A member of the RNA family "FMN riboswitch aptamer (RFN element)" from Ruminococcus sp. CAG:108, 122 nucleotides long. The RFN element is a highly conserved domain that is found frequently in the 5'-untranslated regions of prokaryotic mRNAs that encode for flavin mononucleotide (FMN) biosynthesis and transport proteins. This element is a metabolite-dependent riboswitch that directly binds FMN in the absence of proteins. The base pairs follow the family's consensus structure, which is taken from published work.

RNA sequence: AGUUGUCUUCGGGGCGGAGUGAAAUUCUCCACCGGUGGUUAAAGUCCACGAACAGGUGAAAGCCUGCCGAGUCUGUGAAAUUCAGACACCGACGGUUAUAGUCCGGAUACGAGAAGAUGCGG
Numbered sequence: 001a002g003u004u005g006u007c008u009u010c011g012g013g014g015c016g017g018a019g020u021g022a023a024a025u026u027c028u029c030c031a032c033c034g035g036u037g038g039u040u041a042a043a044g045u046c047c048a049c050g051a052a053c054a055g056g057u058g059a060a061a062g063c064c065u066g067c068c069g070a071g072u073c074u075g076u077g078a079a080a081u082u083c084a085g086a087c088a089c090c091g092a093c094g095g096u097u098a099u100a101g102u103c104c105g106g107a108u109a110c111g112a113g114a115a116g117a118u119g120c121g122g
Stems, first nucleotide, its partner, number of pairs: 004119007017029003031102002033091002035049004044089002053066002071087005093105003